[Rfam]
Source information:
U1 spliceosomal RNA: a 161-nucleotide RNA sequence from Araneus ventricosus. The family's consensus secondary structure is taken from published work.
RNA sequence: AUACUUACUUGAUGUCGGGGAUGUCCUGAUCUAGAAGGGGAAUCCCCCGGUUGGAGGUCCUCCAUUCCACGUUGGAGGGCUGAAAACCACCAUUUUCGCAAAUUGCGAAUCUGAGGGCCCUUAAUUUUUGAGUGUGGGGGCAGCUUGUGAGCUGUCCCUGA
Numbered sequence: 001a002u003a004c005u006u007a008c009u010u011g012a013u014g015u016c017g018g019g020g021a022u023g024u025c026c027u028g029a030u031c032u033a034g035a036a037g038g039g040g041a042a043u044c045c046c047c048c049g050g051u052u053g054g055a056g057g058u059c060c061u062c063c064a065u066u067c068c069a070c071g072u073u074g075g076a077g078g079g080c081u082g083a084a085a086a087c088c089a090c091c092a093u094u095u096u097c098g099c100a101a102a103u104u105g106c107g108a109a110u111c112u113g114a115g116g117g118c119c120c121u122u123a124a125u126u127u128u129u130g131a132g133u134g135u136g137g138g139g140g141c142a143g144c145u146u147g148u149g150a151g152c153u154g155u156c157c158c159u160g161a
Stems, first nucleotide, its partner, number of pairs: 014118002017047005024041004049088004056081003060077004090115001091113002094108002097105002135160006142153004
Overview
On this family, see Katsamba et al., J Biol Chem 2001: "Two functionally distinct steps mediate high affinity binding of U1A protein to U1 hairpin II RNA". Rfam classes the family as a spliceosomal small nuclear RNA.